A member of the RNA family "Rhizobiales sRNA Atu_C8" from Aureimonas endophytica, 124 nucleotides long.
It is annotated as a small RNA.
Pairs were carried over by alignment from the consensus structure, which was predicted with CMfinder.
Lineage of the source: Bacteria > Alphaproteobacteria > Hyphomicrobiales > Aurantimonadaceae > Aureimonas.

RNA sequence: CGCCAUGACGAAGAAGCUUAUUCUCGUACGGGAGCGCACACGCGAGACGGUCUAGGGACCGUCCGGCUGAUGCCACGUGUGCGCUCGAUCCAAGGCCCCUCGCGGGCCUUUUUUAUUGCCCGAA
Numbered sequence: 001c002g003c004c005a006u007g008a009c010g011a012a013g014a015a016g017c018u019u020a021u022u023c024u025c026g027u028a029c030g031g032g033a034g035c036g037c038a039c040a041c042g043c044g045a046g047a048c049g050g051u052c053u054a055g056g057g058a059c060c061g062u063c064c065g066g067c068u069g070a071u072g073c074c075a076c077g078u079g080u081g082c083g084c085u086c087g088a089u090c091c092a093a094g095g096c097c098c099c100u101c102g103c104g105g106g107c108c109u110u111u112u113u114u115a116u117u118g119c120c121c122g123a124a
Base pairs, nucleotide, nucleotide: 009026029122030121031120032119033085034084035083036082037081038080039079040078041077042076046063047062048061049060050059066073067072092110093109094108095107096106097105098104